Rfam assigns this 109-nucleotide sequence from Sinocyclocheilus grahami to the family "Vault RNA". A search with the family's covariance model found it, with a score of 53 bits.

[Rfam]
RNA sequence: GCGCUGGUUUGGCUCAGUGGUUACUUCCGAUUUACGAGAAAUCCCCGUCUCGUGGCCGCCGGGACACCGGACACCGGAGAUCGAGCCUCGAGCGCUGUCCAGCGUUUUC
Numbered sequence: 001g002c003g004c005u006g007g008u009u010u011g012g013c014u015c016a017g018u019g020g021u022u023a024c025u026u027c028c029g030a031u032u033u034a035c036g037a038g039a040a041a042u043c044c045c046c047g048u049c050u051c052g053u054g055g056c057c058g059c060c061g062g063g064a065c066a067c068c069g070g071a072c073a074c075c076g077g078a079g080a081u082c083g084a085g086c087c088u089c090g091a092g093c094g095c096u097g098u099c100c101a102g103c104g105u106u107u108u109c
Stems, first nucleotide, its partner, number of pairs: 002104006012093004017089001019087002025079005